[Rfam]
Shown here is a 78-nucleotide sequence from Trichococcus palustris, a member of the family "L17 ribosomal protein downstream element". The organism belongs to Trichococcus, within Bacteria.

RNA sequence: AGAGUGUUAUGAUGAUGGGAACGCUUAAGCUUCCCUAGUCUAGCUCAGGUUCUUCCGGAGAUUGCCAUAAUCUCCGGA
Numbered sequence: 001a002g003a004g005u006g007u008u009a010u011g012a013u014g015a016u017g018g019g020a021a022c023g024c025u026u027a028a029g030c031u032u033c034c035c036u037a038g039u040c041u042a043g044c045u046c047a048g049g050u051u052c053u054u055c056c057g058g059a060g061a062u063u064g065c066c067a068u069a070a071u072c073u074c075c076g077g078a
Base pairs, nucleotide, nucleotide: 002046003045004044005043011040012039013038017035018034019033020032021031054078055077056076057075058074059073060072061071062070
The family's consensus secondary structure is taken from published work.